[Rfam]
RNA sequence: AGCUUCAUGCUUCUUUUUUAGAUAGUUUGUUGUUCGUGCCUAUCGUACACUUUGCGACUGUUCGUUUUGCAUCUAUUCCAAGCAUCAAUCAAUACAAUAAAUUUCAGCACCAUAAAGAUAAUAAUAAAAAUCAACAAGAUACGAAAACCCCUUCCAUAUCAACAUCAUCACCACCCUUUUUGCGCCUUCCCUUCCCCGCAAAAAAUAAAAAUCUCCAACAAACUCAACCAUCUCCCCCACCAAUUACAAGGACGCCAGCCACUUUUUAGUUGUUUGAAGUUCAAUGAAGUCUACUAAGCCCGCA
Numbered sequence: 001a002g003c004u005u006c007a008u009g010c011u012u013c014u015u016u017u018u019u020a021g022a023u024a025g026u027u028u029g030u031u032g033u034u035c036g037u038g039c040c041u042a043u044c045g046u047a048c049a050c051u052u053u054g055c056g057a058c059u060g061u062u063c064g065u066u067u068u069g070c071a072u073c074u075a076u077u078c079c080a081a082g083c084a085u086c087a088a089u090c091a092a093u094a095c096a097a098u099a100a101a102u103u104u105c106a107g108c109a110c111c112a113u114a115a116a117g118a119u120a121a122u123a124a125u126a127a128a129a130a131u132c133a134a135c136a137a138g139a140u141a142c143g144a145a146a147a148c149c150c151c152u153u154c155c156a157u158a159u160c161a162a163c164a165u166c167a168u169c170a171c172c173a174c175c176c177u178u179u180u181u182g183c184g185c186c187u188u189c190c191c192u193u194c195c196c197c198g199c200a201a202a203a204a205a206u207a208a209a210a211a212u213c214u215c216c217a218a219c220a221a222a223c224u225c226a227a228c229c230a231u232c233u234c235c236c237c238c239a240c241c242a243a244u245u246a247c248a249a250g251g252a253c254g255c256c257a258g259c260c261a262c263u264u265u266u267u268a269g270u271u272g273u274u275u276g277a278a279g280u281u282c283a284a285u286g287a288a289g290u291c292u293a294c295u296a297a298g299c300c301c302g303c304a
Base pairs, nucleotide, nucleotide: 002290003289004288005287006286007285008284009280010279011278012277013276020233021232022231023230024224025223026222027221028220029219030218031217032216036110037109038108039107043057044056045055046054047053059094060093061092062091064089065088066087068084069083070082138160139159140158141157143154144153145152177204178203179202180201181200182199183198184197241272242271243270244269245268246267248265249264250263251262
RNA: IsrM sRNA
Organism: Salmonella enterica